RNA sequence: CCCGCCACUUUGCCUGUCUAUGUGACUGAGUGUAGUCCAGUGGUGGCUAAGAUGGACCCAGCUCUAGGAAACAGGACUGCCCAGACAGUGGGAAGCUCUGUGCCGAAAGGCCUGGAACAACA
Numbered sequence: 001c002c003c004g005c006c007a008c009u010u011u012g013c014c015u016g017u018c019u020a021u022g023u024g025a026c027u028g029a030g031u032g033u034a035g036u037c038c039a040g041u042g043g044u045g046g047c048u049a050a051g052a053u054g055g056a057c058c059c060a061g062c063u064c065u066a067g068g069a070a071a072c073a074g075g076a077c078u079g080c081c082c083a084g085a086c087a088g089u090g091g092g093a094a095g096c097u098c099u100g101u102g103c104c105g106a107a108a109g110g111c112c113u114g115g116a117a118c119a120a121c122a
Stems, first nucleotide, its partner, number of pairs: 005043005018030002021025001058115004062110002065107001067104002072100004077095001080092003
Dot-bracket structure: ....(((((........((.(...)...))........)))))..............((((((.(.((...((((.(..(((.......)))..).))))..))..).)).)))).......